[Rfam]
RNA sequence: CAUAGUAGCAGCGUUAGUCGGGUUAGACCCCCGACGGCCGAACGAGUAAGGGUUCCUCAGCAAUGCUGAUCAGCUGAGGGUUAGCCGGUCCUAAGUCUGCCCGUAAGUCGAAGCAGACAACAGGGAAACAGGUUAAUAUUCCUGUGCCAGUGUGCACUCAAAGCUGACGCUUUGGGGCCGCCUCUGCUGGGUUUUCGCCCAGUUGAACAGUCGAAGACCGUGGAAGCCGUAAUGGCACGAAGCGAUCGAAUGGCUGGAUAACGUAAGAGAGGUCAACCCAGAGCCCGUGAAAAGGCGAGCACACUGUCCGUACCGAGAUCCGACACAGGUACUCGUGGCGGCGAAAGCCAAGGCCUGU
Dot-bracket structure: ................((((((.......))))))((((....((((..((...((((((...((.....)).))))))......(((.((...((((((.((.....))..))))))....))...(((((........)))))..((((((((.......(((...((((((((...(((((.(((((........)))))....((((.....(.(((....(((.....))).....))).)......)))).....(....).)))))...)))))))).........)))..)))))))).)))..)).....((......)).)))).((((.......)))).))))...
The record is a 358-nucleotide part of an RNA from Halopiger xanaduensis, which matches "Archaeal large subunit ribosomal RNA" in Rfam. It is one of the family's seed sequences. Pairs were carried over by alignment from the consensus structure, which is taken from published work.